[Rfam]
RNA sequence: AGGAGUAACAACCGCAGUGGCAGGGCCGGCUCUGGAGCCCGGGAGUCAGCUCCCAUAGUAACUACAGAGCUCUAAGCCUGCAGGGCCUGGAGGCUCAGGGGCGGG
Numbered sequence: 001a002g003g004a005g006u007a008a009c010a011a012c013c014g015c016a017g018u019g020g021c022a023g024g025g026c027c028g029g030c031u032c033u034g035g036a037g038c039c040c041g042g043g044a045g046u047c048a049g050c051u052c053c054c055a056u057a058g059u060a061a062c063u064a065c066a067g068a069g070c071u072c073u074a075a076g077c078c079u080g081c082a083g084g085g086c087c088u089g090g091a092g093g094c095u096c097a098g099g100g101g102c103g104g105g
Stems, first nucleotide, its partner, number of pairs: 003096004009089002012085002019078003024073002028071007036063001040058001042056001
The record is a 105-nucleotide sequence from Canis lupus, which matches "mir-8834 microRNA precursor family" in Rfam. The family's consensus secondary structure was predicted with RNAalifold. Gene Ontology terms of the family: RISC complex and miRNA-mediated post-transcriptional gene silencing.